Annotation
A member of the RNA family "6S / SsrS RNA" from Phytoamicus setariae, 155 nucleotides long. The family's consensus secondary structure is taken from published work. E. coli 6S RNA was the first non coding RNA to be sequenced, but its function was unknown until recently. It consists of 184 nucleotides that fold into an extended hairpin structure with a large single-stranded internal bulge. It scores 66 bits against the family's covariance model.
[Rfam]
RNA sequence: UGCGGUCUGCGCCUCUCGACAGGGUAACAUUUUCCCGGGCCAUACUCGAUCUAAAGGGAGCUGUCCCUGUUCCGGCCUGUGGGCUGGCGCACACGGAACCCACCUACUUUGUAGGCACCAGGGAUCGAACCACCCACCGGUUGUGUGGAUCGCAC
Numbered sequence: 001u002g003c004g005g006u007c008u009g010c011g012c013c014u015c016u017c018g019a020c021a022g023g024g025u026a027a028c029a030u031u032u033u034c035c036c037g038g039g040c041c042a043u044a045c046u047c048g049a050u051c052u053a054a055a056g057g058g059a060g061c062u063g064u065c066c067c068u069g070u071u072c073c074g075g076c077c078u079g080u081g082g083g084c085u086g087g088c089g090c091a092c093a094c095g096g097a098a099c100c101c102a103c104c105u106a107c108u109u110u111g112u113a114g115g116c117a118c119c120a121g122g123g124a125u126c127g128a129a130c131c132a133c134c135c136a137c138c139g140g141u142u143g144u145g146u147g148g149a150u151c152g153c154a155c
Stems, first nucleotide, its partner, number of pairs: 002153011015140001017139002032124004037119002040115002056101003061096004069090002072087006